Small nucleolar RNA SNORD63: a 72-nucleotide sequence from Calypte anna. For this family Rfam cites "Purified box C/D snoRNPs are able to reproduce site-specific 2'-O-methylation of target RNA in vitro" (Galardi et al., Mol Cell Biol, 2002). Rfam links the family to the GO terms RNA processing and nucleolus. The match comes from Rfam's covariance-model search (57 bits). About the family: snoRNA U63 is found in both humans and mice. It is annotated as a C/D-box small nucleolar RNA. Lineage of the source: Eukaryota > Eumetazoa > Dipnotetrapodomorpha > Sauropsida > Calypte.
[Rfam]
RNA sequence: GUGCCAUGAUGUUACUAUCAACACAUCAUUCUGAAGAACAAUUGUGUGGAGACCUUUUGUAACUGAGCAGCA
Numbered sequence: 001g002u003g004c005c006a007u008g009a010u011g012u013u014a015c016u017a018u019c020a021a022c023a024c025a026u027c028a029u030u031c032u033g034a035a036g037a038a039c040a041a042u043u044g045u046g047u048g049g050a051g052a053c054c055u056u057u058u059g060u061a062a063c064u065g066a067g068c069a070g071c072a
Base pairs, nucleotide, nucleotide: 001071002069003068004067